[Rfam]
The record is a 75-nucleotide sequence from Psilopogon haemacephalus, which matches "Small nucleolar RNA SNORD59" in Rfam. The family's RNA type in Rfam is C/D-box small nucleolar RNA. The source organism's lineage runs through Eukaryota, Dipnotetrapodomorpha, Saurischia, Megalaimidae and Psilopogon. Gene Ontology terms of the family: nucleolus and RNA processing. The match comes from Rfam's covariance-model search (59 bits).

RNA sequence: CCUCCCGUGAUGAUGCUUCUUGGUGACUUUCGUUCUCCUGAGCUUGCUGAAGCUAAGGAUUUGAGUCUGAGGAGG
Numbered sequence: 001c002c003u004c005c006c007g008u009g010a011u012g013a014u015g016c017u018u019c020u021u022g023g024u025g026a027c028u029u030u031c032g033u034u035c036u037c038c039u040g041a042g043c044u045u046g047c048u049g050a051a052g053c054u055a056a057g058g059a060u061u062u063g064a065g066u067c068u069g070a071g072g073a074g075g
Stems, first nucleotide, its partner, number of pairs: 001075003005071001